[Rfam]
RNA: ZMP/ZTP riboswitch aptamer (pfl RNA motif)
RNA sequence: AGACCGCAUCCCUGCUGACGGAACCUUGUGGAGCACCACAGUGCAGGGGUGCUGGGGAUGUCAAUGCCGACCGUCUGGGCAGCCUUG
Numbered sequence: 001a002g003a004c005c006g007c008a009u010c011c012c013u014g015c016u017g018a019c020g021g022a023a024c025c026u027u028g029u030g031g032a033g034c035a036c037c038a039c040a041g042u043g044c045a046g047g048g049g050u051g052c053u054g055g056g057g058a059u060g061u062c063a064a065u066g067c068c069g070a071c072c073g074u075c076u077g078g079g080c081a082g083c084c085u086u087g
Base pairs, nucleotide, nucleotide: 004054006052007051008050009049010048011047012046015043017075018074019073020072021071028039029038030037031036065081066080067079068078